[Rfam]
RNA sequence: AUGUCACAGUACUGUGGUACAGAGAAGCACAUCGCACUGGAGGUGAUUUCUUUAUCACCUGCGGCUCCAUGUACUUCUCCGUGCCACAGUACUGGGAACGAAA
Numbered sequence: 001a002u003g004u005c006a007c008a009g010u011a012c013u014g015u016g017g018u019a020c021a022g023a024g025a026a027g028c029a030c031a032u033c034g035c036a037c038u039g040g041a042g043g044u045g046a047u048u049u050c051u052u053u054a055u056c057a058c059c060u061g062c063g064g065c066u067c068c069a070u071g072u073a074c075u076u077c078u079c080c081g082u083g084c085c086a087c088a089g090u091a092c093u094g095g096g097a098a099c100g101a102a103a
Stems, first nucleotide, its partner, number of pairs: 004096002007094011019082002022079006029072004034067001037064003041060007
Shown here is a 103-nucleotide sequence from Selaginella moellendorffii, a member of the family "MIR1094 microRNA precursor family".
Taxonomically the source falls in Selaginella (Eukaryota, Viridiplantae, Streptophytina, Selaginellaceae).
Pairs were carried over by alignment from the consensus structure, which was predicted with RNAalifold.